[Rfam]
RNA sequence: AUUGUAAAAGGCGAUGGAGUCCGCCGUACAAAUGCCAAUGAUGGCUGAUGACUCCUACAGAUGC
Numbered sequence: 001a002u003u004g005u006a007a008a009a010g011g012c013g014a015u016g017g018a019g020u021c022c023g024c025c026g027u028a029c030a031a032a033u034g035c036c037a038a039u040g041a042u043g044g045c046u047g048a049u050g051a052c053u054c055c056u057a058c059a060g061a062u063g064c
Stems, first nucleotide, its partner, number of pairs: 010025004016055006034045004
The record is a 64-nucleotide RNA sequence from Caldicellulosiruptor owensensis, which matches "Fluoride riboswitch aptamer (crcB RNA motif)" in Rfam. Its family is annotated with response to fluoride and positive regulation of gene expression in the Gene Ontology. It scores 56 bits against the family's covariance model. The base pairs follow the family's consensus structure, which is taken from published work. Taxonomically the source falls in Caldicellulosiruptor owensensis (Bacteria, Bacillota, Caldicellulosiruptorales, Caldicellulosiruptoraceae).